[Rfam]
RNA sequence: UGCAAGUAUUUUACGAUUCAGAAGCAACUGUUUCUUGUACAGGUAGGAAAUCAAUAA
Numbered sequence: 001u002g003c004a005a006g007u008a009u010u011u012u013a014c015g016a017u018u019c020a021g022a023a024g025c026a027a028c029u030g031u032u033u034c035u036u037g038u039a040c041a042g043g044u045a046g047g048a049a050a051u052c053a054a055u056a057a
Stems, first nucleotide, its partner, number of pairs: 018037001020035006